[Rfam]
RNA sequence: AGCCCAACCCUGCCGCCGCCCGUGGUCCCAGAGAGUGACCGUCGGCAGGGGCGGGGGAACCACGUAGUGGCGGUCGGCUCCGGUCGGCCCCUAGGGGUGAAGCCCGUCCGAGAGGACGGGCCGGGUGAACUCCCAUCCGAACCCGACAGCUCACCUCGUCGGCAACACAGGAGAGGCAGU
Numbered sequence: 001a002g003c004c005c006a007a008c009c010c011u012g013c014c015g016c017c018g019c020c021c022g023u024g025g026u027c028c029c030a031g032a033g034a035g036u037g038a039c040c041g042u043c044g045g046c047a048g049g050g051g052c053g054g055g056g057g058a059a060c061c062a063c064g065u066a067g068u069g070g071c072g073g074u075c076g077g078c079u080c081c082g083g084u085c086g087g088c089c090c091c092u093a094g095g096g097g098u099g100a101a102g103c104c105c106g107u108c109c110g111a112g113a114g115g116a117c118g119g120g121c122c123g124g125g126u127g128a129a130c131u132c133c134c135a136u137c138c139g140a141a142c143c144c145g146a147c148a149g150c151u152c153a154c155c156u157c158g159u160c161g162g163c164a165a166c167a168c169a170g171g172a173g174a175g176g177c178a179g180u
Base pairs, nucleotide, nucleotide: 002163003162004161008050009049010048011047012046013045014044015043051159052158053157054156055155056154061094095144096143097142103120104119105118106117123138124137125136126135